[Rfam]
RNA sequence: CCGUGCUAGGCGGGGAGGUAGCGGUGCCCUGUCACCCGCAAUCCGCUCUAGCGGGGCCGAACUCCCGCCCGAGGGGUGCGGUCCUGGGUCGGUCCCGAGGCUGGAAGGCGUAGAUGGCCGGGUCCCGCGCGGUGGGCGCCCGUGAACCAGGUCAGGUCCGGGAGGAAGCAGCCUUAAGCGGUAGCGUCCUCGCGCCGCGGGCAAGCCUGGCCGGAGCCGGAAGGUCGCGGGGAGGCGCGGGGCGGCCUCGGAGGCGGGUGCACGG
Numbered sequence: 001c002c003g004u005g006c007u008a009g010g011c012g013g014g015g016a017g018g019u020a021g022c023g024g025u026g027c028c029c030u031g032u033c034a035c036c037c038g039c040a041a042u043c044c045g046c047u048c049u050a051g052c053g054g055g056g057c058c059g060a061a062c063u064c065c066c067g068c069c070c071g072a073g074g075g076g077u078g079c080g081g082u083c084c085u086g087g088g089u090c091g092g093u094c095c096c097g098a099g100g101c102u103g104g105a106a107g108g109c110g111u112a113g114a115u116g117g118c119c120g121g122g123u124c125c126c127g128c129g130c131g132g133u134g135g136g137c138g139c140c141c142g143u144g145a146a147c148c149a150g151g152u153c154a155g156g157u158c159c160g161g162g163a164g165g166a167a168g169c170a171g172c173c174u175u176a177a178g179c180g181g182u183a184g185c186g187u188c189c190u191c192g193c194g195c196c197g198c199g200g201g202c203a204a205g206c207c208u209g210g211c212c213g214g215a216g217c218c219g220g221a222a223g224g225u226c227g228c229g230g231g232g233a234g235g236c237g238c239g240g241g242g243c244g245g246c247c248u249c250g251g252a253g254g255c256g257g258g259u260g261c262a263c264g265g
Stems, first nucleotide, its partner, number of pairs: 001265006009058003012030004017025001019023001035055005064258006073249005081243006088236003094232002096229002099226003107218003115213009124201006130192002134189004140181004149174004157166003